[Rfam]
RNA sequence: GGAAAUCUUCAGGGCAAGGUGCGAAAGCGUAGGCUUUCAAUUCCUGACCGGCGGUGACAGUCCGCGAGUCUUUAAUAAGACUGAACUGGUGUGAUUCCAGUACCGACAGUAUAGUCUGGAUGGAAGAAGAUGUGC
Numbered sequence: 001g002g003a004a005a006u007c008u009u010c011a012g013g014g015c016a017a018g019g020u021g022c023g024a025a026a027g028c029g030u031a032g033g034c035u036u037u038c039a040a041u042u043c044c045u046g047a048c049c050g051g052c053g054g055u056g057a058c059a060g061u062c063c064g065c066g067a068g069u070c071u072u073u074a075a076u077a078a079g080a081c082u083g084a085a086c087u088g089g090u091g092u093g094a095u096u097c098c099a100g101u102a103c104c105g106a107c108a109g110u111a112u113a114g115u116c117u118g119g120a121u122g123g124a125a126g127a128a129g130a131u132g133u134g135c
Base pairs, nucleotide, nucleotide: 003133005131006130007129008128009127010126017045018044019043047115048114049105050104051065052064053063054062060103061102068081069080070079085101086100087099088098089097107118108117109116
A member of the RNA family "FMN riboswitch aptamer (RFN element)" from Pseudobutyrivibrio xylanivorans, 135 nucleotides long. The literature on the family includes a 2009 paper in Nature by Serganov et al., "Coenzyme recognition and gene regulation by a flavin mononucleotide riboswitch". Lineage of the source: Bacteria > Bacillati > Clostridia > Lachnospirales > Pseudobutyrivibrio xylanivorans.